[Rfam]
RNA: Xanthine riboswitch aptamer (NMT1 RNA)
RNA sequence: CGCAAGAGUAGAAGCGUUCAUCCGGGGCCCGGCGCCAUGCCGCCGCCCCGGCAGGAAAUUGCUCUUGAG
Numbered sequence: 001c002g003c004a005a006g007a008g009u010a011g012a013a014g015c016g017u018u019c020a021u022c023c024g025g026g027g028c029c030c031g032g033c034g035c036c037a038u039g040c041c042g043c044c045g046c047c048c049c050g051g052c053a054g055g056a057a058a059u060u061g062c063u064c065u066u067g068a069g
Base pairs, nucleotide, nucleotide: 005065006064007063008062009061010060015054018056019055022051023050024049025048026047027046